[Rfam]
Annotation
A member of the RNA family "S15-Flavobacteria ribosomal protein leader", 55 nucleotides long. The family's RNA type in Rfam is cis-regulatory leader. Clan: Ribosomal Protein S15 Leader clan.
RNA sequence: UACUGAAAGAAAACCUUUCAUGUACAUAAAAAUCAUUUAAAUAAAUAUUGGAAUG
Numbered sequence: 001u002a003c004u005g006a007a008a009g010a011a012a013a014c015c016u017u018u019c020a021u022g023u024a025c026a027u028a029a030a031a032a033u034c035a036u037u038u039a040a041a042u043a044a045a046u047a048u049u050g051g052a053a054u055g
Stems, first nucleotide, its partner, number of pairs: 004020006